[Rfam]
RNA sequence: UCCCAGUGAGGAUUCUAUGACCAUAGGAAGUGCCGUAUGACACUUUAAACAGCAGCUGCUUU
Numbered sequence: 001u002c003c004c005a006g007u008g009a010g011g012a013u014u015c016u017a018u019g020a021c022c023a024u025a026g027g028a029a030g031u032g033c034c035g036u037a038u039g040a041c042a043c044u045u046u047a048a049a050c051a052g053c054a055g056c057u058g059c060u061u062u
Stems, first nucleotide, its partner, number of pairs: 015055001027046006
Small nucleolar RNA U49: a 62-nucleotide RNA sequence. Its family is annotated with nucleolus and RNA processing in the Gene Ontology. Rfam's curators put it in the seed alignment. The family has 5 seed sequences and 340 matches in Rfam 15.1. For this family Rfam cites "Multiple snoRNA gene clusters from Arabidopsis" (Brown et al., RNA, 2001). It is annotated as a C/D-box small nucleolar RNA. Clan: SNORD49 clan.